[Rfam]
RNA: mir-1278 microRNA precursor family
Organism: Cebus imitator
RNA sequence: UUUGCUCAGAAAUAUAUGCAUAGUACUUCCAGUCCUCAUGAAGCUGGUAGUACUAUGCAUGUCAUCUAUGAGUGAA
Number, nucleotide and partner (000 for none) at each position: 001u076002u075003u074004g073005c072006u071007c070008a069009g000010a067011a000012a065013u064014a062015u061016a060017u059018g058019c057020a056021u055022a054023g053024u052025a051026c050027u049028u000029c047030c046031a045032g000033u000034c000035c043036u042037c000038a000039u000040g000041a000042a036043g035044c000045u031046g030047g029048u000049a027050g026051u025052a024053c023054u022055a021056u020057g019058c018059a017060u016061g015062u014063c000064a013065u012066c000067u010068a000069u008070g007071a006072g005073u004074g003075a002076a001